[Rfam]
RNA: FMN riboswitch aptamer (RFN element)
RNA sequence: ACUUUCCUUCGGGGUCGGGUGAAAGUCCCAACCGGCGGUGAUGACUGGCGUUAACGCUAGCUAAGUCCGUGACCCGGUUGCAGAAGCAAACGGUGGAUCUGGUGAGAAACCAGAACCGACAGUAUAGUCUGGAUGGGAGAAGGAAAAA
Numbered sequence: 001a002c003u004u005u006c007c008u009u010c011g012g013g014g015u016c017g018g019g020u021g022a023a024a025g026u027c028c029c030a031a032c033c034g035g036c037g038g039u040g041a042u043g044a045c046u047g048g049c050g051u052u053a054a055c056g057c058u059a060g061c062u063a064a065g066u067c068c069g070u071g072a073c074c075c076g077g078u079u080g081c082a083g084a085a086g087c088a089a090a091c092g093g094u095g096g097a098u099c100u101g102g103u104g105a106g107a108a109a110c111c112a113g114a115a116c117c118g119a120c121a122g123u124a125u126a127g128u129c130u131g132g133a134u135g136g137g138a139g140a141a142g143g144a145a146a147a148a
Base pairs, nucleotide, nucleotide: 003146004145005144006143007142008141009140010139017029018028019027031128032127033118034117035070036069037068038067065116066115074093075092098114099113100112101111102110120131121130122129